[Rfam]
Nucleotides: 085
Stems, first nucleotide, its partner, number of pairs: 003082001011036002016031006034071001040077003045074003048069003
Number, partner (000 for none) and nucleotide at each position: 001000c002000a003082c004000c005000g006000a007000a008000a009000c010000g011036g012035c013000a014000a015000a016031c017030c018029a019028a020027u021026c022000g023000a024000a025000a026021g027020g028019u029018u030017g031016g032000g033000a034071c035012g036011c037000a038000a039000a040077g041076c042075u043000a044000u045074a046073g047072g048069g049068c050067c051000u052000g053000a054000u055000g056000u057000u058000u059000u060000a061000g062000a063000a064000c065000a066000u067050g068049g069048c070000a071034g072047c073046c074045u075042a076041g077040c078000c079000a080000c081000c082003g083000a084000a085000a
The family of this 85-nucleotide RNA sequence from a Vallitaleaceae bacterium is "c-di-GMP-I-GGC riboswitch aptamer". Pairs were carried over by alignment from the consensus structure, which is taken from published work.